[Rfam]
c-di-AMP riboswitch aptamer (ydaO/yuaA leader): a 154-nucleotide RNA from Blastococcus sp. TF02-8. It scores 80 bits against the family's covariance model. Lineage of the source: Bacteria > Actinomycetota > Actinomycetes > Geodermatophilaceae > Blastococcus. This family represents a conserved RNA structure found upstream of the ydaO and yuaA genes in Bacillus subtilis and related genes in other bacteria.

RNA sequence: GGCUGGACACCGCCGAACCGGUCACGGUGCACCCGUGGCCGGACCGGGGACCCAUGGUUCCUCUGGGGUGAAUCCUGCGCGCUCAUGGGCGCGAGGUAGGGCGACUUCCGGCCCGAACCCGUCAGCUAACUCGGUAGGCGGAGAGGAAGAAUGG
Numbered sequence: 001g002g003c004u005g006g007a008c009a010c011c012g013c014c015g016a017a018c019c020g021g022u023c024a025c026g027g028u029g030c031a032c033c034c035g036u037g038g039c040c041g042g043a044c045c046g047g048g049g050a051c052c053c054a055u056g057g058u059u060c061c062u063c064u065g066g067g068g069u070g071a072a073u074c075c076u077g078c079g080c081g082c083u084c085a086u087g088g089g090c091g092c093g094a095g096g097u098a099g100g101g102c103g104a105c106u107u108c109c110g111g112c113c114c115g116a117a118c119c120c121g122u123c124a125g126c127u128a129a130c131u132c133g134g135u136a137g138g139c140g141g142a143g144a145g146g147a148a149g150a151a152u153g154g
Stems, first nucleotide, its partner, number of pairs: 011140004018042010043135006053065002066120003074096003099114004